[Rfam]
Rfam assigns this 120-nucleotide RNA sequence from Trichonephila clavata to the family "U5 spliceosomal RNA". About the family: U5 RNA is a component of both types of known spliceosome. Rfam classes the family as a spliceosomal small nuclear RNA. Pairs were carried over by alignment from the consensus structure, which is taken from published work. The match comes from Rfam's covariance-model search (65 bits). The source organism's lineage runs through Eukaryota, Opisthokonta, Araneomorphae, Nephilidae and Trichonephila.
RNA sequence: AAAUUCUGGUUUCUCUUCAAAAUUGUGCUAAUCUUUCGCCUUUUACUAAAAAUUACCGGGGAGAGGAACAACUUAAUGAGUUUUUACGAAUAAAUCCACUUCUAAAUUAUAAAUAUGAAU
Numbered sequence: 001a002a003a004u005u006c007u008g009g010u011u012u013c014u015c016u017u018c019a020a021a022a023u024u025g026u027g028c029u030a031a032u033c034u035u036u037c038g039c040c041u042u043u044u045a046c047u048a049a050a051a052a053u054u055a056c057c058g059g060g061g062a063g064a065g066g067a068a069c070a071a072c073u074u075a076a077u078g079a080g081u082u083u084u085u086a087c088g089a090a091u092a093a094a095u096c097c098a099c100u101u102c103u104a105a106a107u108u109a110u111a112a113a114u115a116u117g118a119a120u
Stems, first nucleotide, its partner, number of pairs: 003081004009069010029055004034050003098120001100119003105114001